[Rfam]
RNA sequence: GUGACAGAAGAGAGUGAGCACAAAUGGUGUGUUCUUGCAUGAUAUCAUCCAUGCUUGAAGCCAUGGGUGCUCACUCUCUAUCUGUCAC
Numbered sequence: 001g002u003g004a005c006a007g008a009a010g011a012g013a014g015u016g017a018g019c020a021c022a023a024a025u026g027g028u029g030u031g032u033u034c035u036u037g038c039a040u041g042a043u044a045u046c047a048u049c050c051a052u053g054c055u056u057g058a059a060g061c062c063a064u065g066g067g068u069g070c071u072c073a074c075u076c077u078c079u080a081u082c083u084g085u086c087a088c
Stems, first nucleotide, its partner, number of pairs: 001088008010078012024064002
RNA: mir-156 microRNA precursor family